[Rfam]
RNA sequence: CACACACGGAAACCGGGUUGGAUCGACUGGCGCCUGCAGCUCCGGUCCGUUCCCGCCCACCGGUGGCGACAUCCUGUCGCUUCUUUCCGUGGAGGCAUAACCGGUCAAAGGACGAUCA
Numbered sequence: 001c002a003c004a005c006a007c008g009g010a011a012a013c014c015g016g017g018u019u020g021g022a023u024c025g026a027c028u029g030g031c032g033c034c035u036g037c038a039g040c041u042c043c044g045g046u047c048c049g050u051u052c053c054c055g056c057c058c059a060c061c062g063g064u065g066g067c068g069a070c071a072u073c074c075u076g077u078c079g080c081u082u083c084u085u086u087c088c089g090u091g092g093a094g095g096c097a098u099a100a101c102c103g104g105u106c107a108a109a110g111g112a113c114g115a116u117c118a
Stems, first nucleotide, its partner, number of pairs: 001094001003092001005091007015057002043055003066081001
Record summary:
The record is a 118-nucleotide sequence from Aurantimonas sp. 22II-16-19i, which matches "rpsB sRNA" in Rfam.